[Rfam]
Nucleotides: 076
Base pairs, nucleotide, nucleotide: 003046004045005044006043007042008041021034022033023032024031025030
Number, partner (000 for none) and nucleotide at each position: 001000c002000a003046g004045g005044u006043c007042g008041a009000g010000a011000g012000g013000c014000g015000c016000u017000g018000c019000a020000a021034c022033g023032g024031a025030c026000c027000c028000a029000g030025g031024u032023c033022c034021g035000c036000c037000a038000c039000g040000c041008u042007c043006g044005g045004c046003c047000c048000g049000c050000a051000c052000c053000g054000g055000u056000c057000a058000c059000c060000a061000a062000g063000g064000g065000c066000g067000c068000c069000u070000c071000c072000c073000a074000c075000a076000a